[Rfam]
RNA sequence: AGCAAAAUGAGGAGGUCAAUUGAUCUGAAGUAUCUAGUGUUGAUACAUCCAUUCUUUUUUUAAAAAAAAAACCCCGAAAGUGGCAAAAGAUUUGCC
Numbered sequence: 001a002g003c004a005a006a007a008u009g010a011g012g013a014g015g016u017c018a019a020u021u022g023a024u025c026u027g028a029a030g031u032a033u034c035u036a037g038u039g040u041u042g043a044u045a046c047a048u049c050c051a052u053u054c055u056u057u058u059u060u061u062a063a064a065a066a067a068a069a070a071a072c073c074c075c076g077a078a079a080g081u082g083g084c085a086a087a088a089g090a091u092u093u094g095c096c
Stems, first nucleotide, its partner, number of pairs: 002095004

This 96-nucleotide sequence from Oryza sativa belongs to the Rfam family "Small nucleolar RNA R160".
Pairs were carried over by alignment from the consensus structure.
About the family: snoR160 is a C/D box small nucleolar RNA, which acts as a methylation guide for 25S ribosomal RNA in plants. snoR160 has been alternatively named snoZ270 in rice.
For this family Rfam cites "The high diversity of snoRNAs in plants: identification and comparative study of 120 snoRNA genes from Oryza sativa" (Chen et al., Nucleic Acids Res, 2003).